Overview
Rfam assigns this 89-nucleotide RNA from Ziziphus jujuba to the family "Plastid-psbM 3UTR RNA". Rfam 15.1 lists 627 matches to the family in 337 species. A search with the family's covariance model found it, with a score of 68 bits. The literature on the family includes a 2023 paper in Plant Commun by Richter et al., "Retrograde signaling in plants: A critical review focusing on the GUN pathway and beyond". The source organism's lineage runs through Eukaryota, Viridiplantae, rosids, Rosales and Ziziphus. Plastid psbM is a non-coding RNA (ncRNA) recognised in plastids. The family's RNA type in Rfam is cis-regulatory element.
RNA sequence: GAGACGAUAGUAUGGUAGAAAGAAAGAUUCAUAUUUUUCUUUCAACCAUACUAUCUUGUGUUUUCAUUGUACUGUAUAAAGUUUAUUAU
Numbered sequence: 001g002a003g004a005c006g007a008u009a010g011u012a013u014g015g016u017a018g019a020a021a022g023a024a025a026g027a028u029u030c031a032u033a034u035u036u037u038u039c040u041u042u043c044a045a046c047c048a049u050a051c052u053a054u055c056u057u058g059u060g061u062u063u064u065c066a067u068u069g070u071a072c073u074g075u076a077u078a079a080a081g082u083u084u085a086u087u088a089u
Stems, first nucleotide, its partner, number of pairs: 006055011018043011